RNA sequence: GAGCAGGAAAGUUAUAAUACAGCUGCGCAGUGCUGUAUUAUCGUUCCCCCUGCUUAAAGAAAAAUGUUUCCACCUAUUCCUAUCUGCUUUGCCUCCACAGCAGGUAGGGACGCUGGGUUUCAUACAU
Numbered sequence: 001g002a003g004c005a006g007g008a009a010a011g012u013u014a015u016a017a018u019a020c021a022g023c024u025g026c027g028c029a030g031u032g033c034u035g036u037a038u039u040a041u042c043g044u045u046c047c048c049c050c051u052g053c054u055u056a057a058a059g060a061a062a063a064a065u066g067u068u069u070c071c072a073c074c075u076a077u078u079c080c081u082a083u084c085u086g087c088u089u090u091g092c093c094u095c096c097a098c099a100g101c102a103g104g105u106a107g108g109g110a111c112g113c114u115g116g117g118u119u120u121c122a123u124a125c126a127u
Stems, first nucleotide, its partner, number of pairs: 003053005014041010079108004084103004
This 127-nucleotide RNA from Psilopogon haemacephalus belongs to the Rfam family "Small nucleolar RNA SNORA63". E3 belongs to the H/ACA class of snoRNAs and is involved in the processing of eukaryotic pre-rRNA and has regions of complementarity to 18S rRNA. E3 is encoded in introns in the gene for protein synthesis initiation factor 4AII. The literature on the family includes a 1997 paper in Proc Natl Acad Sci U S A by Mishra and Eliceiri, "Three small nucleolar RNAs that are involved in ribosomal RNA precursor processing". The base pairs follow the family's consensus structure, which was predicted with PFOLD. The family has 8 seed sequences and 1,279 matches in Rfam 15.1. NCBI's taxonomy places the organism under Eukaryota, Archosauria, Neognathae, Megalaimidae, Psilopogon.